[Rfam]
RNA sequence: AGUACCUUUAAUUUAAGUCCAGAGAGGCUUGCAAGGCAACUAGAUAUUCAGGGUAGGAGUGUAUACUUUUACUGUAAUUUUCUAGAACCGUGUGAGUCUCCUGACUUACACGGUUUUUUGU
Numbered sequence: 001a002g003u004a005c006c007u008u009u010a011a012u013u014u015a016a017g018u019c020c021a022g023a024g025a026g027g028c029u030u031g032c033a034a035g036g037c038a039a040c041u042a043g044a045u046a047u048u049c050a051g052g053g054u055a056g057g058a059g060u061g062u063a064u065a066c067u068u069u070u071a072c073u074g075u076a077a078u079u080u081u082c083u084a085g086a087a088c089c090g091u092g093u094g095a096g097u098c099u100c101c102u103g104a105c106u107u108a109c110a111c112g113g114u115u116u117u118u119u120g121u
Base pairs, nucleotide, nucleotide: 003038005036006035007034008033014031015030016029017028018027019026048077050075052073053072054071055070056069057068058067059066060065085116086115087114088113089112090111091110092109093108094107095106096105097104098103
A member of the RNA family "PyrR binding site" from Leuconostoc carnosum, 121 nucleotides long. It scores 63 bits against the family's covariance model. Gene Ontology terms of the family: pyrimidine nucleobase biosynthetic process and pyrimidine nucleobase transport. The family has 41 seed sequences and 1,498 matches in Rfam 15.1. From the family's description: This family represents the PyrR binding site and terminator structure. This RNA structure is found upstream of a variety of genes involved in pyrimidine biosynthesis and transport. The alignment also includes a portion of the antiterminator structure. NCBI's taxonomy places the organism under Bacteria, Bacillota, Lactobacillales, Lactobacillaceae, Leuconostoc carnosum.